[Rfam]
RNA sequence: AUCAUACGGAAAGACUUGGUUCUGAUUUGGGUGUCGACAUUCGGGAUCGCAAUUCCGACUGCCGAUUUCGAUAUGGUCUGCAUUGAUAACGGCAGGCUUUAGUUUGAGGGGUUGUUUAGGUUCGCGAGCUGGAGCAACUUGAUGAGAGUGAAGGGCUGUGGGAAACAUUGGUCGGCUCUUUGGGACCAAGACAUCAAACGGAAGGUUUCGGAUGAGAGCUGCCGGUGGGUGGGAACCAGGUACCGGGACCCAUCUCAAGUUGGAGUCAAAGUUUUGCGCUUGUCUGGCCUGGGUCCUUGCUCUCGGCAGUCCGGAUUCUGGGCCUUUAUGGGAGAGUCCUGCUGUUCAGAGUUGGUCAAUUGGAAAAGGACAUGCCUCAUGCGAGGCGGUCCUGGCUGUCUUCUCCCCAGAAAUGGUGAGAGGGCAGCCCCUCUUUUUCAGAGG
Numbered sequence: 001a002u003c004a005u006a007c008g009g010a011a012a013g014a015c016u017u018g019g020u021u022c023u024g025a026u027u028u029g030g031g032u033g034u035c036g037a038c039a040u041u042c043g044g045g046a047u048c049g050c051a052a053u054u055c056c057g058a059c060u061g062c063c064g065a066u067u068u069c070g071a072u073a074u075g076g077u078c079u080g081c082a083u084u085g086a087u088a089a090c091g092g093c094a095g096g097c098u099u100u101a102g103u104u105u106g107a108g109g110g111g112u113u114g115u116u117u118a119g120g121u122u123c124g125c126g127a128g129c130u131g132g133a134g135c136a137a138c139u140u141g142a143u144g145a146g147a148g149u150g151a152a153g154g155g156c157u158g159u160g161g162g163a164a165a166c167a168u169u170g171g172u173c174g175g176c177u178c179u180u181u182g183g184g185a186c187c188a189a190g191a192c193a194u195c196a197a198a199c200g201g202a203a204g205g206u207u208u209c210g211g212a213u214g215a216g217a218g219c220u221g222c223c224g225g226u227g228g229g230u231g232g233g234a235a236c237c238a239g240g241u242a243c244c245g246g247g248a249c250c251c252a253u254c255u256c257a258a259g260u261u262g263g264a265g266u267c268a269a270a271g272u273u274u275u276g277c278g279c280u281u282g283u284c285u286g287g288c289c290u291g292g293g294u295c296c297u298u299g300c301u302c303u304c305g306g307c308a309g310u311c312c313g314g315a316u317u318c319u320g321g322g323c324c325u326u327u328a329u330g331g332g333a334g335a336g337u338c339c340u341g342c343u344g345u346u347c348a349g350a351g352u353u354g355g356u357c358a359a360u361u362g363g364a365a366a367a368g369g370a371c372a373u374g375c376c377u378c379a380u381g382c383g384a385g386g387c388g389g390u391c392c393u394g395g396c397u398g399u400c401u402u403c404u405c406c407c408c409a410g411a412a413a414u415g416g417u418g419a420g421a422g423g424g425c426a427g428c429c430c431c432u433c434u435u436u437u438u439c440a441g442a443g444g
Stems, first nucleotide, its partner, number of pairs: 247267003250263003269281004
RNA: Ascomycota telomerase RNA, nucleotides 1358 to 1801